[Rfam]
Nucleotides: 064
Base pairs, nucleotide, nucleotide: 006059007058009056021040022039025036
Number, partner (000 for none) and nucleotide at each position: 001000c002000a003000g004000g005000c006059a007058u008000a009056a010000u011000g012000a013000u014000g015000a016000a017000a018000u019000g020000u021040u022039u023000u024000u025036c026000u027000g028000a029000u030000u031000a032000c033000u034000u035000u036025g037000a038000u039022g040021a041000a042000u043000a044000c045000a046000a047000a048000c049000c050000u051000c052000c053000u054000a055000c056009u057000c058007a059006u060000u061000c062000u063000g064000a

Small nucleolar RNA Z105: a 64-nucleotide RNA sequence from Cannabis sativa. For this family Rfam cites "The high diversity of snoRNAs in plants: identification and comparative study of 120 snoRNA genes from Oryza sativa" (Chen et al., Nucleic Acids Res, 2003). Its family is annotated with nucleolus and RNA processing in the Gene Ontology. Taxonomically the source falls in Cannabis (Eukaryota, Embryophyta, Spermatophyta, Gunneridae).